[Rfam]
RNA sequence: UGCAGGUAUGCGCGGGACCAACUUCAGGUUGCUCGCAAGAACGGCAGCCCCAAGAGGGUGGGAUCCUGAAGCCCGGGACCUGCUUUUUU
Numbered sequence: 001u002g003c004a005g006g007u008a009u010g011c012g013c014g015g016g017a018c019c020a021a022c023u024u025c026a027g028g029u030u031g032c033u034c035g036c037a038a039g040a041a042c043g044g045c046a047g048c049c050c051c052a053a054g055a056g057g058g059u060g061g062g063a064u065c066c067u068g069a070a071g072c073c074c075g076g077g078a079c080c081u082g083c084u085u086u087u088u089u
Base pairs, nucleotide, nucleotide: 002083003082004081005080006079007078011076013075014074015073016072022071023070024069025068026067027066028045029044030043031042033040034039048058049057050056
About this RNA: A member of the RNA family "DUF3800-VII RNA", 89 nucleotides long. It is one of the family's seed sequences.